[Rfam]
RNA sequence: CAGGCUCUCGUUGAACAAUCCCACCGGUGAGUGUACUUUUUUUGGUCUCCCGCGUGGACCUGAGAGUGCCCAGA
Numbered sequence: 001c002a003g004g005c006u007c008u009c010g011u012u013g014a015a016c017a018a019u020c021c022c023a024c025c026g027g028u029g030a031g032u033g034u035a036c037u038u039u040u041u042u043u044g045g046u047c048u049c050c051c052g053c054g055u056g057g058a059c060c061u062g063a064g065a066g067u068g069c070c071c072a073g074a
Stems, first nucleotide, its partner, number of pairs: 003070003007066003021057004025052002029043003033039001
The family of this 74-nucleotide RNA sequence from Trypanosoma rangeli is "Trypanosomatid snoRNA TB11Cs3H1". The family has 4 seed sequences and 30 matches in Rfam 15.1. Lineage of the source: Eukaryota > Euglenozoa > Trypanosomatida > Trypanosoma > Herpetosoma. Rfam classes the family as an H/ACA-box small nucleolar RNA. The family's consensus secondary structure was predicted with WAR. Gene Ontology terms of the family: RNA processing and nucleolus. On this family, see Liang et al., RNA 2005: "A genome-wide analysis of C/D and H/ACA-like small nucleolar RNAs in Trypanosoma brucei reveals a trypanosome-specific pattern of rRNA modification".